Source information
The record is a 137-nucleotide RNA sequence from Lingula anatina, which matches "Small nucleolar RNA SNORA84" in Rfam. Taxonomically the source falls in Lingula (Eukaryota, Metazoa, Protostomia, Lingulida). Rfam classes the family as an H/ACA-box small nucleolar RNA. It scores 66 bits against the family's covariance model.
Nucleotides: 137
Base pairs, nucleotide, nucleotide: 001061002060003059004058007051008050011046012045013044014043015042016041017040019037020036021035022034023033073129077125078124079123080122085119086118087116088115089114090113092111093110094109095108096107097106
Number, partner (000 for none) and nucleotide at each position: 001061g002060c003059c004058u005000u006000g007051u008050g009000g010000u011046u012045g013044c014043c015042u016041c017040u018000g019037u020036g021035c022034u023033u024000u025000a026000u027000a028000c029000u030000c031000a032000u033023g034022a035021g036020c037019a038000u039000a040017a041016g042015a043014g044013g045012u046011a047000u048000g049000a050008u051007a052000g053000u054000a055000c056000u057000a058004a059003g060002g061001c062000a063000g064000a065000a066000a067000u068000c069000a070000a071000g072000c073129c074000u075000u076000u077125g078124g079123u080122u081000u082000c083000a084000u085119g086118c087116a088115u089114g090113a091000a092111a093110a094109c095108a096107g097106u098000a099000a100000u101000u102000u103000u104000c105000a106097a107096c108095u109094g110093u111092u112000u113090u114089c115088a116087u117000a118086g119085c120000c121000c122080g123079a124078c125077c126000u127000u128000a129073g130000g131000g132000a133000c134000a135000u136000a137000u